The family of this 74-nucleotide sequence from Kocuria dechangensis is "6C RNA".

RNA sequence: CGGCAUCCCGUUCCCCCCGAUCGGGAUGCCCGACGGGCCCUGCCGAUCCCCCCAAGCGGCAGGGCCCGUCCCUG
Numbered sequence: 001c002g003g004c005a006u007c008c009c010g011u012u013c014c015c016c017c018c019g020a021u022c023g024g025g026a027u028g029c030c031c032g033a034c035g036g037g038c039c040c041u042g043c044c045g046a047u048c049c050c051c052c053c054a055a056g057c058g059g060c061a062g063g064g065c066c067c068g069u070c071c072c073u074g
Base pairs, nucleotide, nucleotide: 002031003030004028005027006026007025008024009023010022012020032070033069034068035067036066037065038064039063040062041061042060043059044058
The family's consensus secondary structure is taken from published work. By type it is a cis-regulatory element. The literature on the family includes a 2007 paper in Nucleic Acids Res by Weinberg et al., "Identification of 22 candidate structured RNAs in bacteria using the CMfinder comparative genomics pipeline".